[Rfam]
RNA: Small nucleolar RNA Z105
Organism: Trifolium pratense
RNA sequence: AUGGCAUGGUGAUGAUAUUGUUGAACCUUUCCAUAUGAUAAUACAUAUGAUUAAGAUAACCUCCUACUCAUACUGA
Numbered sequence: 001a002u003g004g005c006a007u008g009g010u011g012a013u014g015a016u017a018u019u020g021u022u023g024a025a026c027c028u029u030u031c032c033a034u035a036u037g038a039u040a041a042u043a044c045a046u047a048u049g050a051u052u053a054a055g056a057u058a059a060c061c062u063c064c065u066a067c068u069c070a071u072a073c074u075g076a
Stems, first nucleotide, its partner, number of pairs: 006071004032049001035046001